[Rfam]
RNA sequence: UACAUCGAAUAAUUUGAAAAUCAAAGAGAUAAGUAGAUUUUCACUCGAAAGUAGUAUUACGUGUAAGUGAGGAGUAAUUAUUGUUCGGUAUCAAAGGGAGACAAAAAAAGCGCCCGCAGGCGCUUUUUAGAUUCA
Numbered sequence: 001u002a003c004a005u006c007g008a009a010u011a012a013u014u015u016g017a018a019a020a021u022c023a024a025a026g027a028g029a030u031a032a033g034u035a036g037a038u039u040u041u042c043a044c045u046c047g048a049a050a051g052u053a054g055u056a057u058u059a060c061g062u063g064u065a066a067g068u069g070a071g072g073a074g075u076a077a078u079u080a081u082u083g084u085u086c087g088g089u090a091u092c093a094a095a096g097g098g099a100g101a102c103a104a105a106a107a108a109a110g111c112g113c114c115c116g117c118a119g120g121c122g123c124u125u126u127u128u129a130g131a132u133u134c135a
Base pairs, nucleotide, nucleotide: 062069107126108125109124110123111122112121113120114119
RNA: Enterobacteria sRNA STnc130
Organism: Shigella dysenteriae